Source information
The family of this 97-nucleotide RNA sequence from Candidatus Planktophila sulfonica is "Bacterial small signal recognition particle RNA". For this family Rfam cites "SRPDB: Signal Recognition Particle Database" (Rosenblad et al., Nucleic Acids Res, 2003). Pairs were carried over by alignment from the consensus structure, which is taken from published work. About the family: The signal recognition particle (SRP) is a universally conserved ribonucleoprotein involved in the co-translational targeting of proteins to membranes.
RNA sequence: GCAGAUCUCCGGUGCGACGUCACCGUGCUGAACUCCCCCAGGGUAGGAAUACAGCAAGGGUAGGUACGCUCUGGCGGGUGCACCGGAGGUCCCUAGA
Number, nucleotide and partner (000 for none) at each position: 001g000002c000003a000004g091005a090006u089007c088008u087009c086010c085011g084012g083013u082014g081015c078016g000017a000018c076019g075020u074021c073022a072023c000024c068025g067026u066027g065028c064029u063030g000031a000032a000033c000034u000035c060036c059037c058038c000039c000040a000041g000042g000043g052044u051045a050046g000047g000048a000049a000050u045051a044052c043053a000054g000055c000056a000057a000058g037059g036060g035061u000062a000063g029064g028065u027066a026067c025068g024069c000070u000071c000072u022073g021074g020075c019076g018077g000078g015079u000080g000081c014082a013083c012084c011085g010086g009087a008088g007089g006090u005091c004092c000093c000094u000095a000096g000097a000